Shown here is a 171-nucleotide sequence from Amedibacillus dolichus, a member of the family "Group II catalytic intron D1-D4-3". A search with the family's covariance model found it, with a score of 64 bits.
RNA sequence: UCUUUCGUGAGGAAGAAUCUGAAGGAAGGUCUAGGCAAAACUCCGUACUGAGGAACACGAACUAAAUCAGGCUUUCAAUGGGGAUGAGUGUGCUAAAUACCAUCACACAAGUGUUGACUCUAAUCCAUGAACCACUAUUUAGUGAAUCUAGUUUUGGAUUUAGACCAGAUA
Numbered sequence: 001u002c003u004u005u006c007g008u009g010a011g012g013a014a015g016a017a018u019c020u021g022a023a024g025g026a027a028g029g030u031c032u033a034g035g036c037a038a039a040a041c042u043c044c045g046u047a048c049u050g051a052g053g054a055a056c057a058c059g060a061a062c063u064a065a066a067u068c069a070g071g072c073u074u075u076c077a078a079u080g081g082g083g084a085u086g087a088g089u090g091u092g093c094u095a096a097a098u099a100c101c102a103u104c105a106c107a108c109a110a111g112u113g114u115u116g117a118c119u120c121u122a123a124u125c126c127a128u129g130a131a132c133c134a135c136u137a138u139u140u141a142g143u144g145a146a147u148c149u150a151g152u153u154u155u156g157g158a159u160u161u162a163g164a165c166c167a168g169a170u171a
Base pairs, nucleotide, nucleotide: 001016002015003014004013005012006011029170030169031168032167036163040160042158043157044156045155047152062151063150064149066147071143072142073141077136079134080133081132082126083125084124085123088120090118091117